MIR1520 microRNA precursor family: a 121-nucleotide RNA sequence from Glycine max. Clan: MIR1520 microRNA precursor clan. NCBI's taxonomy places the organism under Eukaryota, Streptophyta, Euphyllophyta, Glycine, Glycine subgen. Soja.

RNA sequence: UCACAAAGAAACAUUAAUGACCACGUGUCACAUUCUAAUUGGAUGAUGAAAAUGUUAGAACUGACUUUUGGAUGCACCUUUUCAUGUCCAAUCAGAACGUGACACAUGGUAGUCAAUGUGA
Numbered sequence: 001u002c003a004c005a006a007a008g009a010a011a012c013a014u015u016a017a018u019g020a021c022c023a024c025g026u027g028u029c030a031c032a033u034u035c036u037a038a039u040u041g042g043a044u045g046a047u048g049a050a051a052a053u054g055u056u057a058g059a060a061c062u063g064a065c066u067u068u069u070g071g072a073u074g075c076a077c078c079u080u081u082u083c084a085u086g087u088c089c090a091a092u093c094a095g096a097a098c099g100u101g102a103c104a105c106a107u108g109g110u111a112g113u114c115a116a117u118g119u120g121a
Stems, first nucleotide, its partner, number of pairs: 020110004025105002029101003033097004038092005